[Rfam]
RNA sequence: GCCGGUCCUCGGUAGUGGUUUUCGGGCUUGAUAUCCCGAGAACUUCGAUCGAAGGCCGGC
Numbered sequence: 001g002c003c004g005g006u007c008c009u010c011g012g013u014a015g016u017g018g019u020u021u022u023c024g025g026g027c028u029u030g031a032u033a034u035c036c037c038g039a040g041a042a043c044u045u046c047g048a049u050c051g052a053a054g055g056c057c058g059g060c
Base pairs, nucleotide, nucleotide: 001060002059003058004057005056006055007054009052010051011050012049013048017044018043019042020041021040022039023038024037025036026035028033
Dot-bracket structure: (((((((.(((((...((((((((((.(....).))))))))))...))))).)))))))
Description
This 60-nucleotide RNA sequence from Tamaricihabitans halophyticus belongs to the Rfam family "Actino-pnp RNA". The source organism's lineage runs through Bacteria, Bacillati, Pseudonocardiales, Pseudonocardiaceae and Tamaricihabitans. The family's RNA type in Rfam is cis-regulatory element.